RNA sequence: UGGGCUGGUCGAAAGACCCAUGUCCAACCACUACGGAGGGGAGACUCCCC
Numbered sequence: 001u002g003g004g005c006u007g008g009u010c011g012a013a014a015g016a017c018c019c020a021u022g023u024c025c026a027a028c029c030a031c032u033a034c035g036g037a038g039g040g041g042a043g044a045c046u047c048c049c050c
Stems, first nucleotide, its partner, number of pairs: 001026005007018004
Rfam assigns this 50-nucleotide RNA sequence to the family "DUF3800-XI RNA". Rfam describes the family as follows. Actinobacteria, Firmicutes, Proteobacteria, Spirochaetes (1 example). Pairs were carried over by alignment from the consensus structure, which is taken from published work. The family's RNA type in Rfam is small RNA.